A member of the RNA family "ZMP/ZTP riboswitch aptamer (pfl RNA motif)" from Pseudoselenomonas ruminis, 82 nucleotides long. Rfam links the family to the GO terms one-carbon metabolic process and regulation of purine nucleotide biosynthetic process.
RNA sequence: AAUGCUUUGCAGGACUGACGGAUUCGUGGAAUUGACCACAUGUACUGCAGAGUUUUUAACGCCGACCGUCUGGGCAGAGAGU
Numbered sequence: 001a002a003u004g005c006u007u008u009g010c011a012g013g014a015c016u017g018a019c020g021g022a023u024u025c026g027u028g029g030a031a032u033u034g035a036c037c038a039c040a041u042g043u044a045c046u047g048c049a050g051a052g053u054u055u056u057u058a059a060c061g062c063c064g065a066c067c068g069u070c071u072g073g074g075c076a077g078a079g080a081g082u
Stems, first nucleotide, its partner, number of pairs: 004053009015042001017070005026039004061075003